[Rfam]
Shown here is a 132-nucleotide sequence from Otolemur garnettii, a member of the family "Small nucleolar RNA SNORA49". A search with the family's covariance model found it, with a score of 144 bits. The source organism's lineage runs through Eukaryota, Opisthokonta, Mammalia, Primates and Otolemur. The snoRNA ACA49 has no identified RNA target. NB genomic sequence 1-nt different from published. By type it is an H/ACA-box small nucleolar RNA.

RNA sequence: CCUCCUCAGCCUUACUCCAGGGGCUUGUGCCUGUCGAGUGCCCUGGCAUUGCCUGAGGAUAGACAAGCAAGCACACGUCCCUCCCCAGUAAGACUUUGCUAUCUUUUGGGGCCUACAAGGUGAGCUGACAGU
Numbered sequence: 001c002c003u004c005c006u007c008a009g010c011c012u013u014a015c016u017c018c019a020g021g022g023g024c025u026u027g028u029g030c031c032u033g034u035c036g037a038g039u040g041c042c043c044u045g046g047c048a049u050u051g052c053c054u055g056a057g058g059a060u061a062g063a064c065a066a067g068c069a070a071g072c073a074c075a076c077g078u079c080c081c082u083c084c085c086c087a088g089u090a091a092g093a094c095u096u097u098g099c100u101a102u103c104u105u106u107u108g109g110g111g112c113c114u115a116c117a118a119g120g121u122g123a124g125c126u127g128a129c130a131g132u
Stems, first nucleotide, its partner, number of pairs: 003059007011051001017046006023039005070126003074122002083111006090105004